[Rfam]
RNA sequence: GAUCCCCUUACAGCAAUUCUUAGCAAUUCCUUAAGUUCCAUCUUAACUAAUAACUAGGGAUCUG
Number, nucleotide and partner (000 for none) at each position: 001g062002a061003u060004c059005c058006c057007c000008u000009u000010a000011c000012a000013g000014c000015a000016a000017u000018u000019c000020u000021u000022a000023g000024c000025a000026a000027u000028u000029c000030c000031u000032u000033a000034a000035g000036u000037u000038c000039c000040a000041u000042c000043u000044u000045a000046a000047c000048u000049a000050a000051u000052a000053a000054c000055u000056a000057g006058g005059g004060a003061u002062c001063u000064g000
RNA: Class I RNA from Dictyostelium